RNA sequence: CGCGAUAUCCAUCAAAGGAGCCGUUCCCCAUCUAGGGACCACCUUACCAUAUUAUGAAAUC
Dot-bracket structure: ................((.(..(((((.......)))))..).))................
RNA: Plastid-psbN 5UTR RNA